Molybdenum/Tungsten riboswitch aptamer (Moco RNA motif): a 117-nucleotide RNA from Natranaerobius thermophilus. The base pairs follow the family's consensus structure, which is taken from published work.

[Rfam]
RNA sequence: CUGAAUAAUUUUCUCCGAGCUGCUCUCCCUAAGGGGUCGCCUAUGGGGUUCAGCCGUUAGGAAAAAGGGGAAACCCUUUUUCCCCCCGUGCUUGGAAAGGAGAACUGCAUCAACUGU
Numbered sequence: 001c002u003g004a005a006u007a008a009u010u011u012u013c014u015c016c017g018a019g020c021u022g023c024u025c026u027c028c029c030u031a032a033g034g035g036g037u038c039g040c041c042u043a044u045g046g047g048g049u050u051c052a053g054c055c056g057u058u059a060g061g062a063a064a065a066a067g068g069g070g071a072a073a074c075c076c077u078u079u080u081u082c083c084c085c086c087c088g089u090g091c092u093u094g095g096a097a098a099g100g101a102g103a104a105c106u107g108c109a110u111c112a113a114c115u116g117u
Stems, first nucleotide, its partner, number of pairs: 006109001011104006019054004025048001027047003033042003060083010085095002